This 63-nucleotide RNA sequence from Tetragonia tetragonoides belongs to the Rfam family "Plastid-psbA-4 3UTR RNA".
Pairs were carried over by alignment from the consensus structure, which was predicted with LocARNA.
Plastid psbA-4 is a non-coding RNA (ncRNA) present in plastids.
By type it is a cis-regulatory element.
On this family, see Richter et al., Plant Commun 2023: "Retrograde signaling in plants: A critical review focusing on the GUN pathway and beyond".
The organism belongs to Tetragonia, within Eukaryota.

RNA sequence: GAAAGUAAGGGGGCAGUACCGGUUUCUUGACAUAACAAGAAAUUGGUUAUUGCUCCUUUACUA
Numbered sequence: 001g002a003a004a005g006u007a008a009g010g011g012g013g014c015a016g017u018a019c020c021g022g023u024u025u026c027u028u029g030a031c032a033u034a035a036c037a038a039g040a041a042a043u044u045g046g047u048u049a050u051u052g053c054u055c056c057u058u059u060a061c062u063a
Stems, first nucleotide, its partner, number of pairs: 007059012021044002024041006